[Rfam]
RNA sequence: CGGGGACACGCAGGCUCCCCGCCAGGCGGUCAAAUGCCGUCCAAGUUCUGC
Numbered sequence: 001c002g003g004g005g006a007c008a009c010g011c012a013g014g015c016u017c018c019c020c021g022c023c024a025g026g027c028g029g030u031c032a033a034a035u036g037c038c039g040u041c042c043a044a045g046u047u048c049u050g051c
Stems, first nucleotide, its partner, number of pairs: 001021006010051005025041005
RNA: chrB-b RNA